[Rfam]
RNA: MIR2118 microRNA precursor family
Organism: Digitaria exilis
RNA sequence: GGAAAAAUGAAGAAAAACAAACAUUUAAGAGCAUUGGGCCUGGGAACAUAGAGGAAAGCAUAAACCAUGAUGGUCAUCAGAUUCUUUUUUUUAACCAAUGCCUCCCAUGCCUAUUGUUCUUAGGUGUUCCUUCCUCUUCCUAUGAGCU
Numbered sequence: 001g002g003a004a005a006a007a008u009g010a011a012g013a014a015a016a017a018c019a020a021a022c023a024u025u026u027a028a029g030a031g032c033a034u035u036g037g038g039c040c041u042g043g044g045a046a047c048a049u050a051g052a053g054g055a056a057a058g059c060a061u062a063a064a065c066c067a068u069g070a071u072g073g074u075c076a077u078c079a080g081a082u083u084c085u086u087u088u089u090u091u092u093a094a095c096c097a098a099u100g101c102c103u104c105c106c107a108u109g110c111c112u113a114u115u116g117u118u119c120u121u122a123g124g125u126g127u128u129c130c131u132u133c134c135u136c137u138u139c140c141u142a143u144g145a146g147c148u
Stems, first nucleotide, its partner, number of pairs: 009139005016132002020128002024124010035113005041107005047100003051096001053095001056092003